[Rfam]
The record is a 63-nucleotide RNA from Ornithorhynchus anatinus, which matches "U7 small nuclear RNA" in Rfam.

RNA sequence: AUAUGUUGCAGCUCUUUUUUGAAUCUGUCUAGCAGGCUUCCCAGCUCUGGUUGGGAAGCCCAU
Dot-bracket structure: ..................................(((((((((((....)))))))))))...